[Rfam]
RNA: HIV Ribosomal frameshift signal
RNA sequence: UUUUUUAGGGAGAAUCUGGCCUUCCCACAAGGAAAGGCCAGGGAAUUUUCCU
Numbered sequence: 001u002u003u004u005u006u007a008g009g010g011a012g013a014a015u016c017u018g019g020c021c022u023u024c025c026c027a028c029a030a031g032g033a034a035a036g037g038c039c040a041g042g043g044a045a046u047u048u049u050c051c052u
Stems, first nucleotide, its partner, number of pairs: 008052007015042009025032001